[Rfam]
RNA: Small nucleolar RNA SNORD16
Organism: Pocillopora damicornis
RNA sequence: GGAAAUGAUGUUGUAAUUUGCGCCAGACUGUGGUUUGUGGGAACAGACUGCCAUCUGUUCUUUACCACACCACUUGGUUGAUGACAAACUCACUUCUGAUCC
Dot-bracket structure: (((.................((.(.....(((((....((.(((((........))))).....))..)))))......).))................)))